[Rfam]
Mason-Pfizer monkey virus packaging signal: a 284-nucleotide RNA from Sciurus vulgaris.
For this family Rfam cites "Secondary structure model of the Mason-Pfizer monkey virus 5' leader sequence: identification of a structural motif common to a variety of retroviruses" (Harrison et al., J Virol, 1995).
Taxonomically the source falls in Sciurus (Eukaryota, Opisthokonta, Craniata, Teleostomi).
Rfam describes the family as follows. This family represents a group of sequences that are related to the Mason-Pfizer monkey virus (MPMV) packaging signal.
By type it is a cis-regulatory element.
RNA sequence: UGGUGCCCAGCGGUGAGGCGUGGAUAUAGGGAAAUUCGCGAGGGAAGAGGCGUCUAAUUUUUCAGGCGAAGAAAAAGAAAAGUGAAAGUCAGUUCGACAAGGUUCGCCCCGGGAGCCUGCCGCACUGUUCUUAAAGGUACAGCAGAGCCUAAGUAUGAGACAAGAAUUAAGUAAGCAUAAAGUUUUUGUUAAGCAAUUAAAAGAAGCUUUAAAGACACGGGGAGUAAAGGUUAAGAGUAAUGAUCUUUUUAAGUUUUUUGACUUUAUUAAGGACACCUGUCCAU
Numbered sequence: 001u002g003g004u005g006c007c008c009a010g011c012g013g014u015g016a017g018g019c020g021u022g023g024a025u026a027u028a029g030g031g032a033a034a035u036u037c038g039c040g041a042g043g044g045a046a047g048a049g050g051c052g053u054c055u056a057a058u059u060u061u062u063c064a065g066g067c068g069a070a071g072a073a074a075a076a077g078a079a080a081a082g083u084g085a086a087a088g089u090c091a092g093u094u095c096g097a098c099a100a101g102g103u104u105c106g107c108c109c110c111g112g113g114a115g116c117c118u119g120c121c122g123c124a125c126u127g128u129u130c131u132u133a134a135a136g137g138u139a140c141a142g143c144a145g146a147g148c149c150u151a152a153g154u155a156u157g158a159g160a161c162a163a164g165a166a167u168u169a170a171g172u173a174a175g176c177a178u179a180a181a182g183u184u185u186u187u188g189u190u191a192a193g194c195a196a197u198u199a200a201a202a203g204a205a206g207c208u209u210u211a212a213a214g215a216c217a218c219g220g221g222g223a224g225u226a227a228a229g230g231u232u233a234a235g236a237g238u239a240a241u242g243a244u245c246u247u248u249u250u251a252a253g254u255u256u257u258u259u260g261a262c263u264u265u266a267u268u269a270a271g272g273a274c275a276c277c278u279g280u281c282c283a284u
Stems, first nucleotide, its partner, number of pairs: 006031003014026002036050002039047001088138003093135002105127001110122003145161001148159001150157002168211003171207002218260008228246006269284001271282004